[Rfam]
RNA: Small nucleolar RNA SNORA79
RNA sequence: AGACAUCUGUUCCUCUGAUAGUUUUUUAUACUACUUCAGAUUUCAGAUUGUCUUAGAAUAAAAAUGGACUGCUUCACCCAGAACUGUAUUUUUUAUUACAUUGUCUGGUUUUUGCGGGUUCAUACAAAG
Numbered sequence: 001a002g003a004c005a006u007c008u009g010u011u012c013c014u015c016u017g018a019u020a021g022u023u024u025u026u027u028a029u030a031c032u033a034c035u036u037c038a039g040a041u042u043u044c045a046g047a048u049u050g051u052c053u054u055a056g057a058a059u060a061a062a063a064a065u066g067g068a069c070u071g072c073u074u075c076a077c078c079c080a081g082a083a084c085u086g087u088a089u090u091u092u093u094u095a096u097u098a099c100a101u102u103g104u105c106u107g108g109u110u111u112u113u114g115c116g117g118g119u120u121c122a123u124a125c126a127a128a129g
Stems, first nucleotide, its partner, number of pairs: 001053005008046001014040005020035003066121005078108005083102001085100003